[Rfam]
RNA: small nucleolar RNA snoR137
Organism: Cuscuta campestris
RNA sequence: AUUUCUUGAUCUGUGAACUCCCCAGAAGCUUGAAUCAGUUGGGCGUGUUCUUUUUUCCAGAAGCAUAUAUAAAUUAAAUGUUCAGAAUUAAACAGCACGGCGAUUUCAUUUAACUCGUUUCGUGUUACCUGUCUCCUGAAACAUUA
Numbered sequence: 001a002u003u004u005c006u007u008g009a010u011c012u013g014u015g016a017a018c019u020c021c022c023c024a025g026a027a028g029c030u031u032g033a034a035u036c037a038g039u040u041g042g043g044c045g046u047g048u049u050c051u052u053u054u055u056u057c058c059a060g061a062a063g064c065a066u067a068u069a070u071a072a073a074u075u076a077a078a079u080g081u082u083c084a085g086a087a088u089u090a091a092a093c094a095g096c097a098c099g100g101c102g103a104u105u106u107c108a109u110u111u112a113a114c115u116c117g118u119u120u121c122g123u124g125u126u127a128c129c130u131g132u133c134u135c136c137u138g139a140a141a142c143a144u145u146a
Stems, first nucleotide, its partner, number of pairs: 002063004015050004019045001021043003081140005087134001094126003098122003102118001